[Rfam]
RNA: pemK RNA
Organism: Hungateiclostridiaceae bacterium KB18
RNA sequence: ACAAUGAUACUCCCGUCCAGCCACAGCCCGAGCGUGAUUAGCGAUUUUCGGUCGUGAAGCCGUCGCAGGCAAUGGGGGCGGUCGCGAGAGAACCUCGCGGGGGUGUGAUUCCCGUGG
Numbered sequence: 001a002c003a004a005u006g007a008u009a010c011u012c013c014c015g016u017c018c019a020g021c022c023a024c025a026g027c028c029c030g031a032g033c034g035u036g037a038u039u040a041g042c043g044a045u046u047u048u049c050g051g052u053c054g055u056g057a058a059g060c061c062g063u064c065g066c067a068g069g070c071a072a073u074g075g076g077g078g079c080g081g082u083c084g085c086g087a088g089a090g091a092a093c094c095u096c097g098c099g100g101g102g103g104u105g106u107g108a109u110u111c112c113c114g115u116g117g
Stems, first nucleotide, its partner, number of pairs: 012114001013081006082100003086096003101113003